[Rfam]
RNA sequence: CCCUUUUCGCGUUCAUCGUAGGCCUUAAUGUCGUCUUUGAGUCAUAAGGCACGCGGUGAAUGCCAAGAGUG
Numbered sequence: 001c002c003c004u005u006u007u008c009g010c011g012u013u014c015a016u017c018g019u020a021g022g023c024c025u026u027a028a029u030g031u032c033g034u035c036u037u038u039g040a041g042u043c044a045u046a047a048g049g050c051a052c053g054c055g056g057u058g059a060a061u062g063c064c065a066a067g068a069g070u071g
Stems, first nucleotide, its partner, number of pairs: 003069004009063008018054002023049005030042001
RNA: mir-124 microRNA precursor family